The record is a 97-nucleotide sequence from Heyndrickxia coagulans, which matches "Guanidine-I riboswitch aptamer" in Rfam.
NCBI's taxonomy places the organism under Bacteria, Bacillati, Bacillaceae, Heyndrickxia, Heyndrickxia coagulans.
Pairs were carried over by alignment from the consensus structure.
The sequence is in the family's curated seed alignment.
RNA sequence: ACAUUAGUUUUCUAGGGUUCCGCAGUACGCUGGUCAGGUCCAAGAGAAAACACACAGUUGGAAACUGUGCACACGGAGGGAUAAAAGCCCGGGAGAU
Dot-bracket structure: ......((((((..((...((((((....)))..).)).))....)))))).(((((((...)))))))..(.[...(((.......))).)..]..